About this RNA:
The record is a 95-nucleotide sequence, which matches "malK-III RNA" in Rfam.
RNA sequence: CCCGAGCUGUUCACGUACGGGGCCCGUUCACGUCCGCUUCGGCGGCUGGAUGCAAGGGCCCGCGAUGGACUGCCGGGAGUGGAGGAUCCGCUAUG
Numbered sequence: 001c002c003c004g005a006g007c008u009g010u011u012c013a014c015g016u017a018c019g020g021g022g023c024c025c026g027u028u029c030a031c032g033u034c035c036g037c038u039u040c041g042g043c044g045g046c047u048g049g050a051u052g053c054a055a056g057g058g059c060c061c062g063c064g065a066u067g068g069a070c071u072g073c074c075g076g077g078a079g080u081g082g083a084g085g086a087u088c089c090g091c092u093a094u095g
Stems, first nucleotide, its partner, number of pairs: 014064003020061006026051003034045004
It is one of the family's seed sequences. Pairs were carried over by alignment from the consensus structure, which is taken from published work. The family's RNA type in Rfam is cis-regulatory element.